The record is an 86-nucleotide sequence from Rhamnella rubrinervis, which matches "mir-160 microRNA precursor family" in Rfam. Pairs were carried over by alignment from the consensus structure, which was predicted with PFOLD. Its family is annotated with miRNA-mediated post-transcriptional gene silencing and RISC complex in the Gene Ontology. NCBI's taxonomy places the organism under Eukaryota, Euphyllophyta, Pentapetalae, rosids, Rhamnella.
RNA sequence: GUAUACCUGGCUCCUUGUAUGCCAUCUGAUAAGCCCACCAGCACACUGAUGACCUUGUCGAAUGGCGUAUGAGGAGCCAUGCAUGU
Numbered sequence: 001g002u003a004u005a006c007c008u009g010g011c012u013c014c015u016u017g018u019a020u021g022c023c024a025u026c027u028g029a030u031a032a033g034c035c036c037a038c039c040a041g042c043a044c045a046c047u048g049a050u051g052a053c054c055u056u057g058u059c060g061a062a063u064g065g066c067g068u069a070u071g072a073g074g075a076g077c078c079a080u081g082c083a084u085g086u
Stems, first nucleotide, its partner, number of pairs: 001086004006081001008079007016071009027060003